[Rfam]
RNA sequence: AAUACUCUUCAGGGCGGGGUGUGAUUCCCCACCGGCGGUAAAGCCCGCGAACCAAUAUUUUGGUUGAUUCGGUUAAAUUCCGAAGCCGACAGUUAUAGUCUGGAUGAAAGAAGAGAGUG
Numbered sequence: 001a002a003u004a005c006u007c008u009u010c011a012g013g014g015c016g017g018g019g020u021g022u023g024a025u026u027c028c029c030c031a032c033c034g035g036c037g038g039u040a041a042a043g044c045c046c047g048c049g050a051a052c053c054a055a056u057a058u059u060u061u062g063g064u065u066g067a068u069u070c071g072g073u074u075a076a077a078u079u080c081c082g083a084a085g086c087c088g089a090c091a092g093u094u095a096u097a098g099u100c101u102g103g104a105u106g107a108a109a110g111a112a113g114a115g116a117g118u119g
Stems, first nucleotide, its partner, number of pairs: 003117001005115006017029003031099002033088002035048004043086002051064003068084005090102003
FMN riboswitch aptamer (RFN element): a 119-nucleotide RNA from Oceanirhabdus seepicola. It scores 121 bits against the family's covariance model.